[Rfam]
RNA sequence: UCACCCCGCGUGGGAGAGACCCCGACCGCACCGGCCGGGGCGCCGAAGGGGCAACAUCCCCGGAACCUCUCAGGCAGAAGGACCACGUGGGGUUG
Dot-bracket structure: .....((((((((......((((.............)))).(((((..(((...(......)....))))).))).......)))))))).....

This 95-nucleotide sequence from Kineococcus aurantiacus belongs to the Rfam family "Glycine riboswitch aptamer".